[Rfam]
Nucleotides: 130
Base pairs, nucleotide, nucleotide: 002052003051004050019045020044021043022042068122069121070120077112078111081108082107086103087102089100090099091098
Number, partner (000 for none) and nucleotide at each position: 001000g002052u003051a004050g005000c006000u007000c008000a009000g010000u011000g012000g013000g014000u015000g016000a017000g018000a019045a020044c021043a022042g023000c024000u025000g026000c027000u028000c029000u030000g031000c032000u033000u034000u035000g036000c037000u038000g039000c040000a041000c042022c043021u044020g045019u046000g047000a048000c049000a050004c051003u052002g053000g054000g055000g056000c057000a058000a059000a060000g061000a062000g063000a064000a065000a066000g067000u068122g069121g070120c071000u072000a073000u074000u075000u076000c077112u078111a079000u080000g081108c082107u083000c084000a085000g086103u087102g088000c089100u090099c091098a092000g093000a094000a095000c096000a097000g098091u099090g100089a101000c102087c103086a104000c105000u106000a107082a108081g109000a110000a111078u112077g113000a114000u115000u116000u117000g118000u119000a120070g121069c122068c123000u124000a125000a126000c127000a128000a129000g130000c

Annotation
Rfam assigns this 130-nucleotide sequence from Lynx canadensis to the family "Small nucleolar RNA SNORA43". ACA43 is a member of the H/ACA class of snoRNA that guide the sites of modification of uridines to pseudouridines. By type it is an H/ACA-box small nucleolar RNA. Taxonomically the source falls in Lynx (Eukaryota, Eumetazoa, Bilateria, Vertebrata).